[Rfam]
RNA sequence: AUUGCAAGUGAUGAUAAAAAGACAGGGACAUCAGCACUCCUUUUGGAGAAUGUUGACUCGGUCUUUGGGAAUCUCUCUGAUGCAUU
Number, nucleotide and partner (000 for none) at each position: 001a000002u000003u084004g083005c082006a081007a000008g000009u000010g000011a000012u000013g000014a000015u000016a000017a000018a000019a000020a000021g000022a000023c000024a000025g000026g000027g000028a000029c000030a000031u000032c000033a000034g000035c000036a000037c000038u000039c000040c000041u000042u000043u000044u000045g000046g000047a000048g000049a000050a000051u000052g000053u000054u000055g000056a000057c000058u000059c000060g000061g000062u000063c000064u000065u000066u000067g000068g000069g000070a000071a000072u000073c000074u000075c000076u000077c000078u000079g000080a000081u006082g005083c004084a003085u000086u000

The record is an 86-nucleotide RNA sequence from Coptis chinensis, which matches "Small nucleolar RNA R44/J54/Z268 family" in Rfam. The source organism's lineage runs through Eukaryota, Embryophyta, Magnoliopsida, Coptidoideae and Coptis. A search with the family's covariance model found it, with a score of 80 bits. Its Rfam clan is "SNORD74 clan".